[Rfam]
RNA: U11 spliceosomal RNA
RNA sequence: AAAAAGGGCUUCUGCCGUGAUUGGCACAGGAGGGGUGGGGAAUUCCACCCUUUCUGCGGAAUCGCCAUCAAGAGAUUUCGGAAGCAUAAUUUUUACACCAGGGGUUGCUAAUAACCUACUGUUUUGGCGCCCCG
Numbered sequence: 001a002a003a004a005a006g007g008g009c010u011u012c013u014g015c016c017g018u019g020a021u022u023g024g025c026a027c028a029g030g031a032g033g034g035g036u037g038g039g040g041a042a043u044u045c046c047a048c049c050c051u052u053u054c055u056g057c058g059g060a061a062u063c064g065c066c067a068u069c070a071a072g073a074g075a076u077u078u079c080g081g082a083a084g085c086a087u088a089a090u091u092u093u094u095a096c097a098c099c100a101g102g103g104g105u106u107g108c109u110a111a112u113a114a115c116c117u118a119c120u121g122u123u124u125u126g127g128c129g130c131c132c133c134g
Stems, first nucleotide, its partner, number of pairs: 008085005013026005027056012057080007102132004107128005113123003